[Rfam]
RNA sequence: ACUGGAAGCUGCUGGAACCAGUUGUGGGCAAAAGACACAUUUUGUCCACUAUUGCAGUCUUCCUAGAGCAAAGUGGAGGUCUCUGUCUGCUUUAGGAGAGCAAACUAAACCAGAUCGUUCCCCUCCACACAUG
Numbered sequence: 001a002c003u004g005g006a007a008g009c010u011g012c013u014g015g016a017a018c019c020a021g022u023u024g025u026g027g028g029c030a031a032a033a034g035a036c037a038c039a040u041u042u043u044g045u046c047c048a049c050u051a052u053u054g055c056a057g058u059c060u061u062c063c064u065a066g067a068g069c070a071a072a073g074u075g076g077a078g079g080u081c082u083c084u085g086u087c088u089g090c091u092u093u094a095g096g097a098g099a100g101c102a103a104a105c106u107a108a109a110c111c112a113g114a115u116c117g118u119u120c121c122c123c124u125c126c127a128c129a130c131a132u133g
Base pairs, nucleotide, nucleotide: 004063005062006061008058009057010056011055012054024049025048026047027046028045029044034041035040075126076125077124078123079122083117085115086114087113089111091109092108093107094106095105

A member of the RNA family "Small Cajal body specific RNA 3" from Indicator maculatus, 133 nucleotides long. The family is grouped with related families in Rfam's "SCARNA3 clan". The family's consensus secondary structure was predicted with RNAalifold. Gene Ontology terms of the family: nucleolus, RNA processing and Cajal body. Rfam 15.1 lists 642 matches to the family in 535 species. From the family's description: scaRNAs are a specific class of small nuclear RNAs which localise to the Cajal bodies and guide the modification of RNA polymerase II transcribed spliceosomal RNAs U1, U2, U4, U5 and U12. Taxonomically the source falls in Indicator (Eukaryota, Deuterostomia, Amniota, Sauropsida). The literature on the family includes a 2002 paper in EMBO J by Darzacq et al., "Cajal body-specific small nuclear RNAs: a novel class of 2'-O-methylation and pseudouridylation guide RNAs".